[Rfam]
This 101-nucleotide sequence from Methylomusa anaerophila belongs to the Rfam family "c-di-GMP-I riboswitch aptamer". From the family's description: GEMM was predicted in a large-scale screen for bacterial structured RNA regulatory elements. The base pairs follow the family's consensus structure, which is taken from published work.

RNA sequence: AAUACUAUACGGUAAAUAUUGGGCAAUAAGGAUUUACUACGUCAAGGACGCAAAGCCAUGGGUCUACGGGCGUGGGAGCCUAUGACAGCCAGGUUGCAUUU
Numbered sequence: 001a002a003u004a005c006u007a008u009a010c011g012g013u014a015a016a017u018a019u020u021g022g023g024c025a026a027u028a029a030g031g032a033u034u035u036a037c038u039a040c041g042u043c044a045a046g047g048a049c050g051c052a053a054a055g056c057c058a059u060g061g062g063u064c065u066a067c068g069g070g071c072g073u074g075g076g077a078g079c080c081u082a083u084g085a086c087a088g089c090c091a092g093g094u095u096g097c098a099u100u101u
Stems, first nucleotide, its partner, number of pairs: 012051002017046001054095004059091003062086003069080003